[Rfam]
RNA: rpsB sRNA
Organism: Rhizobium subbaraonis
RNA sequence: CACACGUGAGGCAUGGGGCUUUCCGGGAGAAAUCCGGAGUGUUCCGCCGGUGGCAGGGCCAAGGGGUCCUGCUGUUCGCCUUGCGGAGGUUCAACCGGAAAAAGGAGAAAA
Numbered sequence: 001c002a003c004a005c006g007u008g009a010g011g012c013a014u015g016g017g018g019c020u021u022u023c024c025g026g027g028a029g030a031a032a033u034c035c036g037g038a039g040u041g042u043u044c045c046g047c048c049g050g051u052g053g054c055a056g057g058g059c060c061a062a063g064g065g066g067u068c069c070u071g072c073u074g075u076u077c078g079c080c081u082u083g084c085g086g087a088g089g090u091u092c093a094a095c096c097g098g099a100a101a102a103a104g105g106a107g108a109a110a111a
Stems, first nucleotide, its partner, number of pairs: 001088001003086001005085007015045002023036001026034001052073009